[Rfam]
RNA sequence: UCAGAUAACAUGUUGUUUGAAUAUUUUCUUUCAAAAUAAAUUGAGCCAUACGACAUGUUGUCUAUCCU
Numbered sequence: 001u002c003a004g005a006u007a008a009c010a011u012g013u014u015g016u017u018u019g020a021a022u023a024u025u026u027u028c029u030u031u032c033a034a035a036a037u038a039a040a041u042u043g044a045g046c047c048a049u050a051c052g053a054c055a056u057g058u059u060g061u062c063u064a065u066c067c068u
Stems, first nucleotide, its partner, number of pairs: 003063014018048002032043003
Shown here is a 68-nucleotide sequence from Populus deltoides, a member of the family "RNA-OUT". Taxonomically the source falls in Populus (Eukaryota, Viridiplantae, Streptophyta, Streptophytina). Transposition of insertion sequence IS10 is regulated by an anti-sense RNA which inhibits transposase expression when IS10 is present in multiple copies per cell. The anti-sense RNA (RNA-OUT) consists of a stem domain topped by a flexibly paired loop; the 5' end of the target molecule, RNA-IN, is complementary to the top of the loop, and complementarity extends for 35 base-pairs down one side of RNA-OUT. This bacterial RNA is also found in the genomic sequence of eukaryotic organisms. A search with the family's covariance model found it, with a score of 42 bits. For this family Rfam cites "Insertion sequence IS10 anti-sense pairing initiates by an interaction between the 5' end of the target RNA and a loop in the anti-sense RNA" (Kittle et al., J Mol Biol, 1989).